Mycobacterium smegmatis small RNA 1: a 302-nucleotide RNA sequence from Mycobacterium heidelbergense.
RNA sequence: ACGGAAGCCCGGUGAGGCCAAGACCGAUCCGGAAGAGAAGGGUCGUUCUCCCGAUCCGGGCGCCUAGGCACGGCACCCGGCACCCACGCGGAGUCAUAGCCGCGAUAAUGGCAGAAGUGUUGCGGGCCUGCGUAAUUGCGAAAAGCGGAAGAUGUUGACGGCCCUUUGGGUGGGGUUGUAACCGGAUGCGUCGCAAGAUCGCCGAGGCCAACCCACGCAGCCCAGAAAUGCACGCUUGGUAACCGAGUUCCGUGCUAGCGGGCGGCGGACCGAAUAUUUCGGGACGCCGCCCGCUCUACAUU
Numbered sequence: 001a002c003g004g005a006a007g008c009c010c011g012g013u014g015a016g017g018c019c020a021a022g023a024c025c026g027a028u029c030c031g032g033a034a035g036a037g038a039a040g041g042g043u044c045g046u047u048c049u050c051c052c053g054a055u056c057c058g059g060g061c062g063c064c065u066a067g068g069c070a071c072g073g074c075a076c077c078c079g080g081c082a083c084c085c086a087c088g089c090g091g092a093g094u095c096a097u098a099g100c101c102g103c104g105a106u107a108a109u110g111g112c113a114g115a116a117g118u119g120u121u122g123c124g125g126g127c128c129u130g131c132g133u134a135a136u137u138g139c140g141a142a143a144a145g146c147g148g149a150a151g152a153u154g155u156u157g158a159c160g161g162c163c164c165u166u167u168g169g170g171u172g173g174g175g176u177u178g179u180a181a182c183c184g185g186a187u188g189c190g191u192c193g194c195a196a197g198a199u200c201g202c203c204g205a206g207g208c209c210a211a212c213c214c215a216c217g218c219a220g221c222c223c224a225g226a227a228a229u230g231c232a233c234g235c236u237u238g239g240u241a242a243c244c245g246a247g248u249u250c251c252g253u254g255c256u257a258g259c260g261g262g263c264g265g266c267g268g269a270c271c272g273a274a275u276a277u278u279u280c281g282g283g284a285c286g287c288c289g290c291c292c293g294c295u296c297u298a299c300a301u302u
Base pairs, nucleotide, nucleotide: 003065004064007061008060009059010058011057012056016052017051021049022048025045026044027043028042029041030040067256068255069254070253071252072251073250078245079244080243084239085238086237088235089234090233093231094230099112100111101110119221120220121219122218123217124216125209126208127207128206129205130202131201132200136196137195138194139193140192141191145189146188147187151183153181159178160177161176162175163174164173165172258294259293260292261291262290263289264288265287266286267285270282271281272280
The organism belongs to Mycobacterium simiae complex, within Bacteria. The literature on the family includes a 2014 paper in Nucleic Acids Res by Hnilicova et al., "Ms1, a novel sRNA interacting with the RNA polymerase core in mycobacteria". Rfam describes the family as follows. Mycobacterium smegmatis small RNA 1 is highly expressed during stationary phase of growth. Ms1 RNA directly interacts with RNA polymerase (RNAP), but in a different way than 6S, which is present in other bacteria. Ms1 does not require the presence of the main sigma factor for RNAP interaction. There is evidence that Ms1 RNA may function similar to 6S RNA in M. smegmatis which does not have 6S RNA.